[Rfam]
RNA sequence: AGGAGGAAUUACCACAGUGGGUUUGGCCAUCUCUGGAGCCCUGGAUUCAGCUCCCACAGUAACUCCAGAGUUCUCCGUCUGCAGGGGCCUGGAUGCUCCGGGGGCAG
Numbered sequence: 001a002g003g004a005g006g007a008a009u010u011a012c013c014a015c016a017g018u019g020g021g022u023u024u025g026g027c028c029a030u031c032u033c034u035g036g037a038g039c040c041c042u043g044g045a046u047u048c049a050g051c052u053c054c055c056a057c058a059g060u061a062a063c064u065c066c067a068g069a070g071u072u073c074u075c076c077g078u079c080u081g082c083a084g085g086g087g088c089c090u091g092g093a094u095g096c097u098c099c100g101g102g103g104g105c106a107g
Stems, first nucleotide, its partner, number of pairs: 002099004007094001009091001012087002015084001020079003025074002029072001031070007041059003

A member of the RNA family "mir-8834 microRNA precursor family" from Vulpes vulpes, 107 nucleotides long. The source organism's lineage runs through Eukaryota, Metazoa, Deuterostomia, Chordata and Vulpes.